The record is a 95-nucleotide RNA from Capsella rubella, which matches "mir-395 microRNA precursor family" in Rfam.
The base pairs follow the family's consensus structure, which was predicted with PFOLD.
For this family Rfam cites "Computational Identification of Plant MicroRNAs and Their Targets, Including a Stress-Induced miRNA" (Jones-Rhoades and Bartel, Mol Cell, 2004).
RNA sequence: AUGUUUCCUAGAGUUCCUCUGAGCACUUCAUUGGAGAUACCAUUUUCUAUUAAAUAGUAUUCUACUGAAGUGUUUGGGGGAACUCCUGGACUCAU
Numbered sequence: 001a002u003g004u005u006u007c008c009u010a011g012a013g014u015u016c017c018u019c020u021g022a023g024c025a026c027u028u029c030a031u032u033g034g035a036g037a038u039a040c041c042a043u044u045u046u047c048u049a050u051u052a053a054a055u056a057g058u059a060u061u062c063u064a065c066u067g068a069a070g071u072g073u074u075u076g077g078g079g080g081a082a083c084u085c086c087u088g089g090a091c092u093c094a095u
Base pairs, nucleotide, nucleotide: 006090007089008088011085012084013083014082015081016080017079018078019077020076022075023074024072025071026070027069028068029067030066032064033063034062035061

Record summary: Rfam describes the family as follows. mir-395 was identified in both Arabidopsis thaliana and Oryza sativa computationally and was later experimentally verified. mir-395 is thought to target mRNAs coding for ATP sulphurylases. The mature sequence is excised from the 3' arm of the hairpin.